[Rfam]
RNA sequence: CCGCUAUCCGCCAACCGGUUGAGCCGUGUCGCGGAAGGUUUUCCUGCAUCGCAACGGGUGAAGCACCCGGUAAGGUGAAGCG
Numbered sequence: 001c002c003g004c005u006a007u008c009c010g011c012c013a014a015c016c017g018g019u020u021g022a023g024c025c026g027u028g029u030c031g032c033g034g035a036a037g038g039u040u041u042u043c044c045u046g047c048a049u050c051g052c053a054a055c056g057g058g059u060g061a062a063g064c065a066c067c068c069g070g071u072a073a074g075g076u077g078a079a080g081c082g
Stems, first nucleotide, its partner, number of pairs: 002082003007035005016026004037044002047077004055069006